[Rfam]
RNA sequence: GAAGCAAGUCAGACCGCCGCUGGUGCGAGCAUGGAAACAUGGCACUGGAGGAAGGUCCGGACUGCAAAGAGCAGCGUAGCAGCUAACGGCUGUCCGGCGUGAGCCGAGGAUUAGAGCAACAGAGACGAGUCGAUCAAACGUGCAGGGCGCAAGCGCUGCGGGACCGGAAGCGCAGCCUCCGGGGUCGGGUGAAACGGGCAAUCUCUACGCGCAGCAACACCAAGUAGGCCAGUAUUGAUGCGGCUCGCAGAGCUGGCGGGUAGGUGGCACCGAGCCGGGCAGUGAUGCUCGGCCAAGAGGAAUGGCGGUCACAGAAUUGCGUUCGCAAGAACGCGGUUCUGCACAGAAUCCGGCCUAUCGACUUGCUUCACUC
Numbered sequence: 001g002a003a004g005c006a007a008g009u010c011a012g013a014c015c016g017c018c019g020c021u022g023g024u025g026c027g028a029g030c031a032u033g034g035a036a037a038c039a040u041g042g043c044a045c046u047g048g049a050g051g052a053a054g055g056u057c058c059g060g061a062c063u064g065c066a067a068a069g070a071g072c073a074g075c076g077u078a079g080c081a082g083c084u085a086a087c088g089g090c091u092g093u094c095c096g097g098c099g100u101g102a103g104c105c106g107a108g109g110a111u112u113a114g115a116g117c118a119a120c121a122g123a124g125a126c127g128a129g130u131c132g133a134u135c136a137a138a139c140g141u142g143c144a145g146g147g148c149g150c151a152a153g154c155g156c157u158g159c160g161g162g163a164c165c166g167g168a169a170g171c172g173c174a175g176c177c178u179c180c181g182g183g184g185u186c187g188g189g190u191g192a193a194a195c196g197g198g199c200a201a202u203c204u205c206u207a208c209g210c211g212c213a214g215c216a217a218c219a220c221c222a223a224g225u226a227g228g229c230c231a232g233u234a235u236u237g238a239u240g241c242g243g244c245u246c247g248c249a250g251a252g253c254u255g256g257c258g259g260g261u262a263g264g265u266g267g268c269a270c271c272g273a274g275c276c277g278g279g280c281a282g283u284g285a286u287g288c289u290c291g292g293c294c295a296a297g298a299g300g301a302a303u304g305g306c307g308g309u310c311a312c313a314g315a316a317u318u319g320c321g322u323u324c325g326c327a328a329g330a331a332c333g334c335g336g337u338u339c340u341g342c343a344c345a346g347a348a349u350c351c352g353g354c355c356u357a358u359c360g361a362c363u364u365g366c367u368u369c370a371c372u373c
Stems, first nucleotide, its partner, number of pairs: 001369010011358001012310007020048007028040001053356003057353005062214004069246004074210005079093005094108001095106004109205002114203002116199002131146001157170001176191001178189004218266004228257006239249003274293008
RNA: Bacterial RNase P class A
Organism: Paucibacter sp. KCTC 42545